[Rfam]
RNA: Small nucleolar RNA R160
RNA sequence: GGCAUGAUGAUGAGAAUAUAAAAUAGCCUCUGAAUUUAAUUUCAUGUGGAUCUUAUAUUUACAUACCUUCAAAGUUCUCUGAGUUGCU
Numbered sequence: 001g002g003c004a005u006g007a008u009g010a011u012g013a014g015a016a017u018a019u020a021a022a023a024u025a026g027c028c029u030c031u032g033a034a035u036u037u038a039a040u041u042u043c044a045u046g047u048g049g050a051u052c053u054u055a056u057a058u059u060u061a062c063a064u065a066c067c068u069u070c071a072a073a074g075u076u077c078u079c080u081g082a083g084u085u086g087c088u
Stems, first nucleotide, its partner, number of pairs: 001088004